Small nucleolar RNA snoR136: a 139-nucleotide RNA sequence from Dichanthelium oligosanthes. A search with the family's covariance model found it, with a score of 53 bits. For this family Rfam cites "Mining small RNA sequencing data: a new approach to identify small nucleolar RNAs in Arabidopsis" (Chen and Wu, Nucleic Acids Res, 2009). Gene Ontology terms of the family: RNA processing and nucleolus. Rfam classes the family as an H/ACA-box small nucleolar RNA.
Nucleotides: 139
Stems, first nucleotide, its partner, number of pairs: 004069002008065001012057002015054001023051007032044002080132007088123002093121005102114001104112001
Number, partner (000 for none) and nucleotide at each position: 001000c002000u003000g004069g005068c006000u007000u008065c009000u010000c011000u012057u013056g014000a015054u016000u017000u018000c019000a020000u021000u022000g023051u024050g025049c026048c027047u028046g029045u030000g031000a032044g033043a034000c035000c036000u037000u038000a039000u040000g041000g042000u043033u044032c045029g046028u047027g048026g049025g050024c051023g052000g053000u054015g055000c056013c057012a058000a059000g060000a061000a062000u063000g064000u065008g066000a067000a068005g069004c070000a071000a072000a073000a074000g075000g076000g077000a078000u079000u080132g081131u082130u083129c084128c085127u086126c087000u088123c089122g090000c091000u092000a093121u094120c095119c096118g097117g098000c099000g100000c101000g102114g103000a104112a105000u106000u107000u108000g109000g110000g111000a112104u113000g114102c115000g116000a117097u118096c119095g120094g121093a122089c123088g124000u125000c126086g127085a128084g129083g130082a131081a132080c133000u134000a135000c136000a137000u138000u139000u